Rfam assigns this 131-nucleotide sequence to the family "xerDC RNA". Rfam's curators put it in the seed alignment. Pairs were carried over by alignment from the consensus structure, which is taken from published work. The family's RNA type in Rfam is cis-regulatory element.
RNA sequence: GGCUCCCCGCCGGAAGGGGCCAUAAGACGCGCGUGGCUUUUGCCACAGCCGGAUACUUCGGCCAUGCGUCUGCCGUGGGGCCAAGGGCCCCGGCUUAUCAUCGAAAGCGAACACGGCGUAGAUUACUCAAC
Dot-bracket structure: ((((((.........))))))...(((((((.(((((....))))).((((.......))))..)))))))(((((.(((.(....).))).(.((........)).)....)))))..............